[Rfam]
RNA: mir-54 microRNA precursor family
RNA sequence: GGCGAGCCCUGACUGGGAUAUGAGAGGACGAGUACAUUGAAUUCAACCAUUACUUGUACCCGUAAUCUUCAUAAUCCGAGCCAGGGGGAGCC
Numbered sequence: 001g002g003c004g005a006g007c008c009c010u011g012a013c014u015g016g017g018a019u020a021u022g023a024g025a026g027g028a029c030g031a032g033u034a035c036a037u038u039g040a041a042u043u044c045a046a047c048c049a050u051u052a053c054u055u056g057u058a059c060c061c062g063u064a065a066u067c068u069u070c071a072u073a074a075u076c077c078g079a080g081c082c083a084g085g086g087g088g089a090g091c092c
Stems, first nucleotide, its partner, number of pairs: 003090001007086005013080002016077003019073006029062002032059005